[Rfam]
Notes
Shown here is a 233-nucleotide part of an RNA from Sparassis crispa, a member of the family "Eukaryotic large subunit ribosomal RNA". Its family is annotated with ribosome and structural constituent of ribosome in the Gene Ontology. Rfam 15.1 lists 107,465 matches to the family in 2,616 species. The organism belongs to Sparassis, within Eukaryota.
RNA sequence: CGCUUGAAGUCAGUCGCGUCGGUCGGAAUUCAGCCUUGCUCACGCUCGGUGUACUUUCUGACCGACGGGUCAGCAUCGAUUUUGACGGUCGGAUAAAGGUCGAGGGAAUGUGGCACCUUCGGGUGUGUUAUAGCCCUCGGUUGGGAUACGACGGUCGGGAUCGAGGAAAACCGGGCGCUUUCGCGUUUGGGAUGCUGGCAUAAUGGCUUUAAACGACCCGUCUUGAAACACGG
Numbered sequence: 001c002g003c004u005u006g007a008a009g010u011c012a013g014u015c016g017c018g019u020c021g022g023u024c025g026g027a028a029u030u031c032a033g034c035c036u037u038g039c040u041c042a043c044g045c046u047c048g049g050u051g052u053a054c055u056u057u058c059u060g061a062c063c064g065a066c067g068g069g070u071c072a073g074c075a076u077c078g079a080u081u082u083u084g085a086c087g088g089u090c091g092g093a094u095a096a097a098g099g100u101c102g103a104g105g106g107a108a109u110g111u112g113g114c115a116c117c118u119u120c121g122g123g124u125g126u127g128u129u130a131u132a133g134c135c136c137u138c139g140g141u142u143g144g145g146a147u148a149c150g151a152c153g154g155u156c157g158g159g160a161u162c163g164a165g166g167a168a169a170a171c172c173g174g175g176c177g178c179u180u181u182c183g184c185g186u187u188u189g190g191g192a193u194g195c196u197g198g199c200a201u202a203a204u205g206g207c208u209u210u211a212a213a214c215g216a217c218c219c220g221u222c223u224u225g226a227a228a229c230a231c232g233g
Stems, first nucleotide, its partner, number of pairs: 001215002004212009017067008071197007218233004